[Rfam]
A member of the RNA family "Nuclear RNase P" from Chionoecetes opilio, 269 nucleotides long. It is annotated as a ribozyme. NCBI's taxonomy places the organism under Eukaryota, Opisthokonta, Bilateria, Panarthropoda, Chionoecetes. The family has 116 seed sequences and 3,848 matches in Rfam 15.1. Ribonuclease P (RNase P) is a ubiquitous endoribonuclease, found in archaea, bacteria and eukarya as well as chloroplasts and mitochondria. Its best characterised activity is the generation of mature 5'-ends of tRNAs by cleaving the 5'-leader elements of precursor-tRNAs. Cellular RNase Ps are ribonucleoproteins. RNA from bacterial RNase Ps retains its catalytic activity in the absence of the protein subunit, i.e. it is a ribozyme.

RNA sequence: GGCAGCACAAGCUUGCUCUAGGGGUCUGUGUCCCCUGGGAAGGUCUGAGAGAAGGGACUCUAAUGCUCUUGAAGGGCAGCCUUUGAGAAAAGGAGCGGAACACCAGACAGCCUCCGGGUGCCUGGCUGGGGGCAGGUCGAGGACACCAGGAGCUGCUGGUGGAGGCAGCCCCCAGCCUGGGUUGGGAGGUUCCUGUGUCCAGCUUAGUUGAGUGUGAUGAGCAAGGUGGCUGUGAGGCCAUAACUCAAUUCAGACUAUUCUGUGCAGCU
Numbered sequence: 001g002g003c004a005g006c007a008c009a010a011g012c013u014u015g016c017u018c019u020a021g022g023g024g025u026c027u028g029u030g031u032c033c034c035c036u037g038g039g040a041a042g043g044u045c046u047g048a049g050a051g052a053a054g055g056g057a058c059u060c061u062a063a064u065g066c067u068c069u070u071g072a073a074g075g076g077c078a079g080c081c082u083u084u085g086a087g088a089a090a091a092g093g094a095g096c097g098g099a100a101c102a103c104c105a106g107a108c109a110g111c112c113u114c115c116g117g118g119u120g121c122c123u124g125g126c127u128g129g130g131g132g133c134a135g136g137u138c139g140a141g142g143a144c145a146c147c148a149g150g151a152g153c154u155g156c157u158g159g160u161g162g163a164g165g166c167a168g169c170c171c172c173c174a175g176c177c178u179g180g181g182u183u184g185g186g187a188g189g190u191u192c193c194u195g196u197g198u199c200c201a202g203c204u205u206a207g208u209u210g211a212g213u214g215u216g217a218u219g220a221g222c223a224a225g226g227u228g229g230c231u232g233u234g235a236g237g238c239c240a241u242a243a244c245u246c247a248a249u250u251c252a253g254a255c256u257a258u259u260c261u262g263u264g265c266a267g268c269u
Base pairs, nucleotide, nucleotide: 001269002268003267007263008262009261012225013224014223015222016221017220018219020036021035022034023033024032045253046252047251048250049249055200056199057198058197064078065077066076067075068074080093081092082091083090084089095196096195097194098193100191113181114180115179226241227240228239229238230237231236